Small nucleolar RNA SNORD10: a 137-nucleotide RNA from Onychostoma macrolepis. The family has 22 seed sequences and 433 matches in Rfam 15.1. NCBI's taxonomy places the organism under Eukaryota, Opisthokonta, Craniata, Acrossocheilinae, Onychostoma. Its family is annotated with nucleolus and RNA processing in the Gene Ontology. The family's RNA type in Rfam is C/D-box small nucleolar RNA.

[Rfam]
RNA sequence: GUUUUGUGAUGAUCCCCAUGCGUGUCAACUGAUCCCAGACUUCCUGCAGUGCUCUGUGUCUGAUAAGCGUUUUGCUUAGCUGUACAUUUGAGCCUGUAAGACUCUGGGAACAUGAUCUUAACUUUUAGUCUGAAAAC
Numbered sequence: 001g002u003u004u005u006g007u008g009a010u011g012a013u014c015c016c017c018a019u020g021c022g023u024g025u026c027a028a029c030u031g032a033u034c035c036c037a038g039a040c041u042u043c044c045u046g047c048a049g050u051g052c053u054c055u056g057u058g059u060c061u062g063a064u065a066a067g068c069g070u071u072u073u074g075c076u077u078a079g080c081u082g083u084a085c086a087u088u089u090g091a092g093c094c095u096g097u098a099a100g101a102c103u104c105u106g107g108g109a110a111c112a113u114g115a116u117c118u119u120a121a122c123u124u125u126u127a128g129u130c131u132g133a134a135a136a137c
Base pairs, nucleotide, nucleotide: 001137002136003135004134042101043100045098046097047096048095049094